A member of the RNA family "mir-122 microRNA precursor family" from Ameiurus melas, 74 nucleotides long. The base pairs follow the family's consensus structure, which was predicted with RNAalifold.

RNA sequence: CGCAGUUAUGGAGUGUGACAAUGGUGUUUGUGUCAUGUUCAAUCAAACGCCAUUAUCACACUAAAUAACUACGG
Numbered sequence: 001c002g003c004a005g006u007u008a009u010g011g012a013g014u015g016u017g018a019c020a021a022u023g024g025u026g027u028u029u030g031u032g033u034c035a036u037g038u039u040c041a042a043u044c045a046a047a048c049g050c051c052a053u054u055a056u057c058a059c060a061c062u063a064a065a066u067a068a069c070u071a072c073g074g
Base pairs, nucleotide, nucleotide: 012062013061014060015059016058017057018056020054021053022052023051024050025049026048027047028046029045030044
Annotation:
A search with the family's covariance model found it, with a score of 80 bits. Its family is annotated with miRNA-mediated post-transcriptional gene silencing and RISC complex in the Gene Ontology.